Rfam assigns this 136-nucleotide RNA from Onychostoma macrolepis to the family "U11 spliceosomal RNA". The family is grouped with related families in Rfam's "U1 clan". It is annotated as a spliceosomal small nuclear RNA. The match comes from Rfam's covariance-model search (95 bits).
RNA sequence: AAAAAGGGCAUCUGCUAUGACUGGCAUAGCUGUGGAUGAGAUUUUCUGAUACAGUUACGGAAUCGCUAUCAAGAGAUUUCGGAUGUGCAAUUUUUAAAACCCGAGGCUGCCAAUGAUCAUUAUUCUUGGUGCCUCA
Numbered sequence: 001a002a003a004a005a006g007g008g009c010a011u012c013u014g015c016u017a018u019g020a021c022u023g024g025c026a027u028a029g030c031u032g033u034g035g036a037u038g039a040g041a042u043u044u045u046c047u048g049a050u051a052c053a054g055u056u057a058c059g060g061a062a063u064c065g066c067u068a069u070c071a072a073g074a075g076a077u078u079u080c081g082g083a084u085g086u087g088c089a090a091u092u093u094u095u096a097a098a099a100c101c102c103g104a105g106g107c108u109g110c111c112a113a114u115g116a117u118c119a120u121u122a123u124u125c126u127u128g129g130u131g132c133c134u135c136a
Base pairs, nucleotide, nucleotide: 008086009085010084011083012082013026014025015024016023017022027057028056029055030054031053032052033051036050037049039047040046058081059080060079061078062077063076064075104134105133106132107131109130110129111128112127113126115125116124